[Rfam]
RNA sequence: CUCUUAUCCAGAGAGGUCGAGGGACUGGCCCGAUGACACCCGGCAACCAGCGGCAACGCAUGGUGCUAAUUCCAGCAGGAGCAAUCCUGGAAGAUGAGAG
Numbered sequence: 001c002u003c004u005u006a007u008c009c010a011g012a013g014a015g016g017u018c019g020a021g022g023g024a025c026u027g028g029c030c031c032g033a034u035g036a037c038a039c040c041c042g043g044c045a046a047c048c049a050g051c052g053g054c055a056a057c058g059c060a061u062g063g064u065g066c067u068a069a070u071u072c073c074a075g076c077a078g079g080a081g082c083a084a085u086c087c088u089g090g091a092a093g094a095u096g097a098g099a100g
Base pairs, nucleotide, nucleotide: 001100002099003098004097005096006095007094008093013041015040016039017038021031022030023029025075026074027073028072042067043066044065045064047063048062050059051058052057071092076089077088078087079086080085

Rfam assigns this 100-nucleotide sequence from Thermosinus carboxydivorans to the family "SAM riboswitch aptamer (S box leader)". The family's consensus secondary structure is taken from published work. NCBI's taxonomy places the organism under Bacteria, Negativicutes, Selenomonadales, Sporomusaceae, Thermosinus carboxydivorans. A search with the family's covariance model found it, with a score of 87 bits. Gene Ontology term of the family: regulation of gene expression.